[Rfam]
Source information:
Rfam assigns this 144-nucleotide RNA from Talaromyces rugulosus to the family "A. fumigatus sRNA Afu_254". The source organism's lineage runs through Eukaryota, Opisthokonta, Eurotiales, Talaromyces and Talaromyces sect. Islandici. Rfam 15.1 lists 185 matches to the family in 142 species. A search with the family's covariance model found it, with a score of 63 bits.
RNA sequence: UUACAAUUUGACAAGACCUUGAAAAGUCAUAUUCUUUUCCAACCUUUCCAUCCAAAUCAAUCGAAAUGUCUCCCUGCGCCUGCAACUGCUGCUCUGGUAGCUGCGCCGAUAGCUGCUCAUGCUCCUCUUGUGGCGUACGUACUU
Numbered sequence: 001u002u003a004c005a006a007u008u009u010g011a012c013a014a015g016a017c018c019u020u021g022a023a024a025a026g027u028c029a030u031a032u033u034c035u036u037u038u039c040c041a042a043c044c045u046u047u048c049c050a051u052c053c054a055a056a057u058c059a060a061u062c063g064a065a066a067u068g069u070c071u072c073c074c075u076g077c078g079c080c081u082g083c084a085a086c087u088g089c090u091g092c093u094c095u096g097g098u099a100g101c102u103g104c105g106c107c108g109a110u111a112g113c114u115g116c117u118c119a120u121g122c123u124c125c126u127c128u129u130g131u132g133g134c135g136u137a138c139g140u141a142c143u144u
Stems, first nucleotide, its partner, number of pairs: 075099003082092003103131003115122002